[Rfam]
Shown here is a 59-nucleotide sequence from Tupaia belangeri, a member of the family "mir-8/mir-141/mir-200 microRNA precursor family". Pairs were carried over by alignment from the consensus structure, which was predicted with RNAalifold. It is one of the family's seed sequences. For this family Rfam cites "New microRNAs from mouse and human" (Lagos-Quintana et al., RNA, 2003). The family is grouped with related families in Rfam's "mir-8 microRNA precursor clan".
RNA sequence: CAUCUUACCGGACAGUGCUGGACUUCUCAACGGCUCUAACACUGUCUGGUAACGAUGUU
Numbered sequence: 001c002a003u004c005u006u007a008c009c010g011g012a013c014a015g016u017g018c019u020g021g022a023c024u025u026c027u028c029a030a031c032g033g034c035u036c037u038a039a040c041a042c043u044g045u046c047u048g049g050u051a052a053c054g055a056u057g058u059u
Stems, first nucleotide, its partner, number of pairs: 001057004005052013019038004